Shown here is a 224-nucleotide RNA from Miscanthus lutarioriparius, a member of the family "MIR6217 microRNA precursor family".
RNA sequence: UGGCCACAGAAUAAGUUAUUCUGUGGCCACUUUGAGUUACGAUAAUUACUAUAUUAAUUUACGAGAUUAUGGUAACUCUCUCGUAAGUGAUUUACUAUAAUAUUAUGGUAAGUAUCAUCUUGAAUUAUAGUAACCUAUGUAUCGUAAAUGUGUAUUGUCAUUAUCGUAAAUUGAUAUAAAUAUUAUCGUAAAUCAAGGUGGCUAUAGAAUAAGUUAUUCUGAUA
Numbered sequence: 001u002g003g004c005c006a007c008a009g010a011a012u013a014a015g016u017u018a019u020u021c022u023g024u025g026g027c028c029a030c031u032u033u034g035a036g037u038u039a040c041g042a043u044a045a046u047u048a049c050u051a052u053a054u055u056a057a058u059u060u061a062c063g064a065g066a067u068u069a070u071g072g073u074a075a076c077u078c079u080c081u082c083g084u085a086a087g088u089g090a091u092u093u094a095c096u097a098u099a100a101u102a103u104u105a106u107g108g109u110a111a112g113u114a115u116c117a118u119c120u121u122g123a124a125u126u127a128u129a130g131u132a133a134c135c136u137a138u139g140u141a142u143c144g145u146a147a148a149u150g151u152g153u154a155u156u157g158u159c160a161u162u163a164u165c166g167u168a169a170a171u172u173g174a175u176a177u178a179a180a181u182a183u184u185a186u187c188g189u190a191a192a193u194c195a196a197g198g199u200g201g202c203u204a205u206a207g208a209a210u211a212a213g214u215u216a217u218u219c220u221g222a223u224a
Stems, first nucleotide, its partner, number of pairs: 006223001007221008016212018037191010050178013065165003069161003074155001079148001081146001087142003092137001093132009103122001108116001
It scores 139 bits against the family's covariance model.